[Rfam]
RNA sequence: GGGUCUCGCCAGCUGUAACAGCAUCUCCAUAUGGAAAGACUCAGGCUUCCAGUGGAGCUGCUGUUAUUUGUGGCGGGAUG
Numbered sequence: 001g002g003g004u005c006u007c008g009c010c011a012g013c014u015g016u017a018a019c020a021g022c023a024u025c026u027c028c029a030u031a032u033g034g035a036a037a038g039a040c041u042c043a044g045g046c047u048u049c050c051a052g053u054g055g056a057g058c059u060g061c062u063g064u065u066a067u068u069u070g071u072g073g074c075g076g077g078a079u080g
Stems, first nucleotide, its partner, number of pairs: 009073003015067008025057006032051003